The record is a 123-nucleotide sequence, which matches "Betaproteobacteria-1 RNA" in Rfam.
RNA sequence: GUCUUAAUUGGACGGCUAAAACCACCAGCGAUUAAGAUACAAGUGCUACUGGGGGAUAGUUGAUGUAAGAGCACACAAGGAGAUGGCGAAGUCAGAGUCUCCUUCAACGAAAGUCUGACGGGU
Numbered sequence: 001g002u003c004u005u006a007a008u009u010g011g012a013c014g015g016c017u018a019a020a021a022c023c024a025c026c027a028g029c030g031a032u033u034a035a036g037a038u039a040c041a042a043g044u045g046c047u048a049c050u051g052g053g054g055g056a057u058a059g060u061u062g063a064u065g066u067a068a069g070a071g072c073a074c075a076c077a078a079g080g081a082g083a084u085g086g087c088g089a090a091g092u093c094a095g096a097g098u099c100u101c102c103u104u105c106a107a108c109g110a111a112a113g114u115c116u117g118a119c120g121g122g123u
Stems, first nucleotide, its partner, number of pairs: 001038010025052004043074005060107004079102006091119006

The base pairs follow the family's consensus structure, which is taken from published work. It is annotated as a small RNA. The sequence is in the family's curated seed alignment.